[Rfam]
RNA sequence: AGGUGGUGAUGUCCAAACUCACGAUGGUCUGCAGAGUCCCGGGUGAGGGGCUGCUGACAACGCCACUGGCACGUGCUGAACCUGUGGG
Numbered sequence: 001a002g003g004u005g006g007u008g009a010u011g012u013c014c015a016a017a018c019u020c021a022c023g024a025u026g027g028u029c030u031g032c033a034g035a036g037u038c039c040c041g042g043g044u045g046a047g048g049g050g051c052u053g054c055u056g057a058c059a060a061c062g063c064c065a066c067u068g069g070c071a072c073g074u075g076c077u078g079a080a081c082c083u084g085u086g087g088g
Base pairs, nucleotide, nucleotide: 001083002082003081004080